Rfam assigns this 85-nucleotide RNA from Steroidobacter agaridevorans to the family "c-di-GMP-I riboswitch aptamer". Pairs were carried over by alignment from the consensus structure, which is taken from published work.
RNA sequence: GCUUCACCAGGGCAUAACCGUCGUAAGACGGCGACGCAAAGCCUCCGGUCCUACAGCGCAUGCUGGGGAUAGCGGGGUUGCCGGC
Number, nucleotide and partner (000 for none) at each position: 001g000002c000003u000004u000005c000006a000007c000008c000009a000010g000011g000012g037013c036014a000015u000016a000017a000018c031019c030020g029021u028022c027023g000024u000025a000026a000027g022028a021029c020030g019031g018032c000033g000034a000035c000036g013037c012038a000039a000040a079041g078042c077043c076044u000045c075046c074047g073048g070049u069050c068051c000052u000053a000054c000055a064056g063057c062058g000059c000060a000061u000062g057063c056064u055065g000066g000067g000068g050069a049070u048071a000072g000073c047074g046075g045076g043077g042078u041079u040080g000081c000082c000083g000084g000085c000